[Rfam]
RNA sequence: GUCAGGGUGAGUCGGGCUGGUGCUCGCACGAGACUUCAACGCUCGGGGCAUGGAGACAUGCAGUAGUUCGAUCCUCCCUCCUUGAC
Number, nucleotide and partner (000 for none) at each position: 001g086002u085003c084004a083005g082006g081007g080008u000009g078010a000011g000012u000013c026014g025015g024016g023017c022018u000019g000020g000021u000022g017023c016024u015025c014026g013027c000028a000029c045030g044031a043032g042033a000034c000035u000036u000037c000038a000039a000040c000041g000042c032043u031044c030045g029046g000047g000048g061049c060050a059051u058052g057053g000054a000055g000056a000057c052058a051059u050060g049061c048062a000063g077064u000065a075066g074067u000068u000069c000070g000071a000072u000073c000074c066075u065076c000077c063078c009079u000080c007081c006082u005083u004084g003085a002086c001
RNA: Selenocysteine transfer RNA
Organism: Polarella glacialis